U5 spliceosomal RNA: a 115-nucleotide RNA sequence from Sclerotinia sclerotiorum.
About the family: U5 RNA is a component of both types of known spliceosome.
The base pairs follow the family's consensus structure, which is taken from published work.
[Rfam]
RNA sequence: UCGGAGUGGGACAAGCUAGCUCAGAAUUCAUUUCUUGCCUUUUACCAGAGAUGACCGUGGCUCAUGCCCAUAAUACUCCAUUCAUCAAAUAUUUGGAACAAACCUUUCUGAUUAC
Numbered sequence: 001u002c003g004g005a006g007u008g009g010g011a012c013a014a015g016c017u018a019g020c021u022c023a024g025a026a027u028u029c030a031u032u033u034c035u036u037g038c039c040u041u042u043u044a045c046c047a048g049a050g051a052u053g054a055c056c057g058u059g060g061c062u063c064a065u066g067c068c069c070a071u072a073a074u075a076c077u078c079c080a081u082u083c084a085u086c087a088a089a090u091a092u093u094u095g096g097a098a099c100a101a102a103c104c105u106u107u108c109u110g111a112u113u114a115c
Base pairs, nucleotide, nucleotide: 003079004078005077006076009069010068012066013065014062015061016060017059018058028054029053030052031051032050033049034048035047100113101112103110

Taxonomically the source falls in Sclerotinia sclerotiorum (Eukaryota, Ascomycota, Pezizomycotina, sordariomyceta). Gene Ontology terms of the family: spliceosomal tri-snRNP complex assembly and U5 snRNP. By type it is a spliceosomal small nuclear RNA. It is one of the family's seed sequences.